[Rfam]
RNA sequence: CUUCCAACCCGCCAAACAUAUCACAUUUUUGGCAAAGCGAGCGAUAUUUUGGGUUAGAACGAAUGAGUUGGCAAAAAGGAGUAAAGUUACAUAAUCUUGAAACUUCGGUACCGUGUAUAUCUACAACAACUGAGGCUAGACUAGUAGCGGCUGAGAACUCAUCCAUGACUUUUUCAAGAAGCAUUUCAUUGCUUUUGGUUUGUAGUAACAUAGCUAUUCCCCUUUCGGCAAUACUUGGCGUGUUUCUGUCGUUCUUAGUAUAGCAUAUUUAUAAUGCGCUUACAUUUUCUUGCCAUGAAGAUAACAAUAUAUUGCUAAGACUAAUUUCAUAAGAGAAAGCCCAAACCAUGCUCUACUGGAUGGCUUUUUGUCGUUUAUUUUUUUGAAGGCGCAAAAUUGUGUUAAAACACGAUUCGCGUCUUCUUUUUU
Numbered sequence: 001c002u003u004c005c006a007a008c009c010c011g012c013c014a015a016a017c018a019u020a021u022c023a024c025a026u027u028u029u030u031g032g033c034a035a036a037g038c039g040a041g042c043g044a045u046a047u048u049u050u051g052g053g054u055u056a057g058a059a060c061g062a063a064u065g066a067g068u069u070g071g072c073a074a075a076a077a078g079g080a081g082u083a084a085a086g087u088u089a090c091a092u093a094a095u096c097u098u099g100a101a102a103c104u105u106c107g108g109u110a111c112c113g114u115g116u117a118u119a120u121c122u123a124c125a126a127c128a129a130c131u132g133a134g135g136c137u138a139g140a141c142u143a144g145u146a147g148c149g150g151c152u153g154a155g156a157a158c159u160c161a162u163c164c165a166u167g168a169c170u171u172u173u174u175c176a177a178g179a180a181g182c183a184u185u186u187c188a189u190u191g192c193u194u195u196u197g198g199u200u201u202g203u204a205g206u207a208a209c210a211u212a213g214c215u216a217u218u219c220c221c222c223u224u225u226c227g228g229c230a231a232u233a234c235u236u237g238g239c240g241u242g243u244u245u246c247u248g249u250c251g252u253u254c255u256u257a258g259u260a261u262a263g264c265a266u267a268u269u270u271a272u273a274a275u276g277c278g279c280u281u282a283c284a285u286u287u288u289c290u291u292g293c294c295a296u297g298a299a300g301a302u303a304a305c306a307a308u309a310u311a312u313u314g315c316u317a318a319g320a321c322u323a324a325u326u327u328c329a330u331a332a333g334a335g336a337a338a339g340c341c342c343a344a345a346c347c348a349u350g351c352u353c354u355a356c357u358g359g360a361u362g363g364c365u366u367u368u369u370g371u372c373g374u375u376u377a378u379u380u381u382u383u384u385g386a387a388g389g390c391g392c393a394a395a396a397u398u399g400u401g402u403u404a405a406a407a408c409a410c411g412a413u414u415c416g417c418g419u420c421u422u423c424u425u426u427u428u429u
Stems, first nucleotide, its partner, number of pairs: 027320009039254008057245005064237005071229002075225005081219001085215005095140003099136001103135007114125004144209002147206002149164002152161003168203002174198004179194005258283003263277004284302006334369008346359003385423008395414008
Dot-bracket structure: ..........................(((((((((...((((((((..........(((((..(((((..((..(((((.(...(((((.....(((.(...(((((((....((((....))))...)))))))).)))...((.((((.(((....))).))...((....((((.(((((......)))))))))...)).)).)).)))))...).)))))..))...)))))...))))).))))))))...(((..((((.......))))...)))((((((.......)))))).........))))))))).............((((((((....(((........)))..))))))))...............((((((((..((((((((....)))))))).))))))))......
Shown here is a 429-nucleotide RNA sequence from Listeria innocua, a member of the family "Listeria sRNA rliH".